[Rfam]
The family of this 100-nucleotide RNA from Paenibacillus swuensis is "Purine riboswitch aptamer". The source organism's lineage runs through Bacteria, Bacillati, Bacillota, Bacilli and Paenibacillus.

RNA sequence: UUCAUAACUGCAUAAAGCUUUCGUAUAAUCCUGGGAAUUGGCUCGGGAGUUUCUACAAGGUCACCGUAAUGAUCUGGCUACGAUUGGGGAAGUCUUAUAC
Numbered sequence: 001u002u003c004a005u006a007a008c009u010g011c012a013u014a015a016a017g018c019u020u021u022c023g024u025a026u027a028a029u030c031c032u033g034g035g036a037a038u039u040g041g042c043u044c045g046g047g048a049g050u051u052u053c054u055a056c057a058a059g060g061u062c063a064c065c066g067u068a069a070u071g072a073u074c075u076g077g078c079u080a081c082g083a084u085u086g087g088g089g090a091a092g093u094c095u096u097a098u099a100c
Base pairs, nucleotide, nucleotide: 018086021083022082023081024080025079029048030047031046032045033044034043035042058075059074060073061072062071063070
A search with the family's covariance model found it, with a score of 64 bits. For this family Rfam cites "Three-state mechanism couples ligand and temperature sensing in riboswitches" (Reining et al., Nature, 2013).